[Rfam]
RNA: Purine riboswitch aptamer
RNA sequence: AAGAGAUUUGGAUUGGUUGCUUAUAUAAACCCAUAAUGGGAUGGGUGUUUCUACCAACUACCGUAUAAUAGUUGACUUUAAGCGGGGUUUUGCUGUAC
Numbered sequence: 001a002a003g004a005g006a007u008u009u010g011g012a013u014u015g016g017u018u019g020c021u022u023a024u025a026u027a028a029a030c031c032c033a034u035a036a037u038g039g040g041a042u043g044g045g046u047g048u049u050u051c052u053a054c055c056a057a058c059u060a061c062c063g064u065a066u067a068a069u070a071g072u073u074g075a076c077u078u079u080a081a082g083c084g085g086g087g088u089u090u091u092g093c094u095g096u097a098c
Stems, first nucleotide, its partner, number of pairs: 018084006025077001029046006055074006
Dot-bracket structure: .................((((((.(...((((((......))))))........((((((........))))))..).))))))..............